[Rfam]
RNA sequence: CGCCCCGUCAUCUGGGGAGUAGCCCGCCACCCGAUCAUCGGGCGGUGCGCCCGCGUCAACAUACUUGGCCGAGAGGUCAUGGCGCGGCGGGGACGGUCGGACCGUCCC
Numbered sequence: 001c002g003c004c005c006c007g008u009c010a011u012c013u014g015g016g017g018a019g020u021a022g023c024c025c026g027c028c029a030c031c032c033g034a035u036c037a038u039c040g041g042g043c044g045g046u047g048c049g050c051c052c053g054c055g056u057c058a059a060c061a062u063a064c065u066u067g068g069c070c071g072a073g074a075g076g077u078c079a080u081g082g083c084g085c086g087g088c089g090g091g092g093a094c095g096g097u098c099g100g101a102c103c104g105u106c107c108c
Base pairs, nucleotide, nucleotide: 025049026048027047051087052086053085054084055083056082057081058080066079067078068077069076070075090108091107092106093105094104095103096102

This 108-nucleotide sequence from Erythrobacter sp. 3-20A1M belongs to the Rfam family "Manganese Mn2+ riboswitch aptamer (yybP-ykoY)".
Lineage of the source: Bacteria > Pseudomonadota > Alphaproteobacteria > Sphingomonadales > Erythrobacter.
The literature on the family includes a 2015 paper in Mol Cell by Dambach et al., "The ubiquitous yybP-ykoY riboswitch is a manganese-responsive regulatory element".
The base pairs follow the family's consensus structure.